[Rfam]
RNA sequence: CUUAGUAGGCUACCUAUCGCAAUACUUAGCAGUGUUUAUGGCGGUGGCUGAGCUCUAUAGAAGGGAGUGUUGCUUAUGUUCAUCCUAGGAAAGGGACUUCCGCCAUGACUGUGUAUCAGGCGUUGACAUUGGCAAUUGCCUUUGCGACCUUGAUCAUCACCAUUGAUCGACA
Numbered sequence: 001c002u003u004a005g006u007a008g009g010c011u012a013c014c015u016a017u018c019g020c021a022a023u024a025c026u027u028a029g030c031a032g033u034g035u036u037u038a039u040g041g042c043g044g045u046g047g048c049u050g051a052g053c054u055c056u057a058u059a060g061a062a063g064g065g066a067g068u069g070u071u072g073c074u075u076a077u078g079u080u081c082a083u084c085c086u087a088g089g090a091a092a093g094g095g096a097c098u099u100c101c102g103c104c105a106u107g108a109c110u111g112u113g114u115a116u117c118a119g120g121c122g123u124u125g126a127c128a129u130u131g132g133c134a135a136u137u138g139c140c141u142u143u144g145c146g147a148c149c150u151u152g153a154u155c156a157u158c159a160c161c162a163u164u165g166a167u168c169g170a171c172a
Base pairs, nucleotide, nucleotide: 044148045147047145048144063086064085065084067083068082072080107127109125111123112122113121114120154170155169156167158165159164
Rfam assigns this 172-nucleotide sequence from Enterococcus pallens to the family "Listeria sRNA rli28".
It scores 46 bits against the family's covariance model.
The organism belongs to Enterococcus pallens, within Bacteria.
By type it is a small RNA.